The family of this 36-nucleotide sequence from Niabella drilacis is "DUF805b RNA". The family is grouped with related families in Rfam's "DUF805 clan".

RNA sequence: CCUGCGUAAGCCGAAAAGCAGUUUUUAGAGUAGGCA
Numbered sequence: 001c002c003u004g005c006g007u008a009a010g011c012c013g014a015a016a017a018g019c020a021g022u023u024u025u026u027a028g029a030g031u032a033g034g035c036a
Stems, first nucleotide, its partner, number of pairs: 002021004010035003